[Rfam]
Notes
The record is a 98-nucleotide sequence from Electrophorus electricus, which matches "Vault RNA" in Rfam. A reference for the family is Stadler et al. (2009), "Evolution of Vault RNAs", Mol Biol Evol. The family's consensus secondary structure is taken from published work. The match comes from Rfam's covariance-model search (66 bits). The family's RNA type in Rfam is non-coding RNA gene.
RNA sequence: GCACUGGCUUAGCUCAGCGGUUACUUCAUCUAAUUUCAUUGAAGAAAUAUGAUGUUUCCCGUACAGGGAUCGAACCUCGGGCGCAGUCCAGUGCUUUU
Numbered sequence: 001g002c003a004c005u006g007g008c009u010u011a012g013c014u015c016a017g018c019g020g021u022u023a024c025u026u027c028a029u030c031u032a033a034u035u036u037c038a039u040u041g042a043a044g045a046a047a048u049a050u051g052a053u054g055u056u057u058c059c060c061g062u063a064c065a066g067g068g069a070u071c072g073a074a075c076c077u078c079g080g081g082c083g084c085a086g087u088c089c090a091g092u093g094c095u096u097u098u
Base pairs, nucleotide, nucleotide: 002093003092004091005090006089007088012082013081014080015079017078019076020075025074026073027072